[Rfam]
RNA sequence: GUCACGGAAACGUUAGCCAAACCAUAAUCAUGCCAAAUUUCGGCCAACCCCGCGCCGCCCUGGCUUGCGAUACAACAAUCUCUGCGUUGGCCCGGUUCUUCUGGUCCUGGAUUCCUCAGCCCCCAGCCCCCCGGGAUUGAAAGGACCGGGCCUGUUUCGCAGAGAGACGAACCUCCGAAGACAAACAGGCCAACGCAAGUUGGCCUUUUU
Numbered sequence: 001g002u003c004a005c006g007g008a009a010a011c012g013u014u015a016g017c018c019a020a021a022c023c024a025u026a027a028u029c030a031u032g033c034c035a036a037a038u039u040u041c042g043g044c045c046a047a048c049c050c051c052g053c054g055c056c057g058c059c060c061u062g063g064c065u066u067g068c069g070a071u072a073c074a075a076c077a078a079u080c081u082c083u084g085c086g087u088u089g090g091c092c093c094g095g096u097u098c099u100u101c102u103g104g105u106c107c108u109g110g111a112u113u114c115c116u117c118a119g120c121c122c123c124c125a126g127c128c129c130c131c132c133g134g135g136a137u138u139g140a141a142a143g144g145a146c147c148g149g150g151c152c153u154g155u156u157u158c159g160c161a162g163a164g165a166g167a168c169g170a171a172c173c174u175c176c177g178a179a180g181a182c183a184a185a186c187a188g189g190c191c192a193a194c195g196c197a198a199g200u201u202g203g204c205c206u207u208u209u210u
Stems, first nucleotide, its partner, number of pairs: 040047001081163006089152011102139009119127002187206008

Background
A member of the RNA family "Bradyrhizobiaceae sRNA BjrC174" from Afipia sp. P52-10, 210 nucleotides long. The literature on the family includes a 2012 paper in RNA Biol by Madhugiri et al., "Small RNAs of the Bradyrhizobium/Rhodopseudomonas lineage and their analysis". The organism belongs to Afipia, within Bacteria. The base pairs follow the family's consensus structure. The family's RNA type in Rfam is small RNA.